Background: MIR390 microRNA precursor family: a 101-nucleotide RNA from Brassica carinata. The family has 16 seed sequences and 649 matches in Rfam 15.1. Its family is annotated with RISC complex and miRNA-mediated post-transcriptional gene silencing in the Gene Ontology. A reference for the family is Xie et al. (2005), "Expression of Arabidopsis MIRNA genes", Plant Physiol. Pairs were carried over by alignment from the consensus structure, which was predicted with WAR. A search with the family's covariance model found it, with a score of 97 bits.

[Rfam]
RNA sequence: GAGAAGAAUCUGUAAAGCUCAGGAGGGAUAGCGCCAUCAUCAUCAUCACAUUCACGUAGAUAUUUUGGCGCUGUCCAUCCUGAGUUUCAUUGGCUCUUCUU
Numbered sequence: 001g002a003g004a005a006g007a008a009u010c011u012g013u014a015a016a017g018c019u020c021a022g023g024a025g026g027g028a029u030a031g032c033g034c035c036a037u038c039a040u041c042a043u044c045a046u047c048a049c050a051u052u053c054a055c056g057u058a059g060a061u062a063u064u065u066u067g068g069c070g071c072u073g074u075c076c077a078u079c080c081u082g083a084g085u086u087u088c089a090u091u092g093g094c095u096c097u098u099c100u101u
Base pairs, nucleotide, nucleotide: 010092016086017085018084019083020082021081022080023079024078026076027075028074029073030072031071032070033069034068035067